[Rfam]
RNA sequence: AGCGCAGCUCCAUACUUCUUUACAUUCCAUAUGAAUUUAAUACUAUGGGAAGUAAGGAAGCACGGAACUAGCGC
Numbered sequence: 001a002g003c004g005c006a007g008c009u010c011c012a013u014a015c016u017u018c019u020u021u022a023c024a025u026u027c028c029a030u031a032u033g034a035a036u037u038u039a040a041u042a043c044u045a046u047g048g049g050a051a052g053u054a055a056g057g058a059a060g061c062a063c064g065g066a067a068c069u070a071g072c073g074c
Base pairs, nucleotide, nucleotide: 007068009066010065011064013062015060016059017058018057019056020055021054022053023052025050027048028047029046030045031044